[Rfam]
Small nucleolar RNA SNORD87: a 79-nucleotide sequence from Aegithalos caudatus. Rfam 15.1 lists 539 matches to the family in 430 species. Gene Ontology terms of the family: RNA processing and nucleolus. The pairing is the family consensus, mapped onto this sequence. A search with the family's covariance model found it, with a score of 51 bits. The family's RNA type in Rfam is C/D-box small nucleolar RNA.
Nucleotides: 079
Stems, first nucleotide, its partner, number of pairs: 002078006
Number, partner (000 for none) and nucleotide at each position: 001000u002078c003077u004076g005075g006074c007073a008000u009000a010000a011000u012000g013000a014000u015000g016000a017000g018000a019000c020000u021000u022000u023000u024000g025000c026000c027000g028000u029000u030000u031000a032000c033000c034000c035000a036000u037000c038000u039000g040000a041000a042000u043000g044000u045000u046000u047000u048000u049000u050000g051000a052000u053000g054000u055000g056000u057000a058000a059000c060000u061000u062000g063000a064000g065000a066000u067000c068000u069000g070000a071000a072000a073007u074006g075005c076004c077003a078002g079000u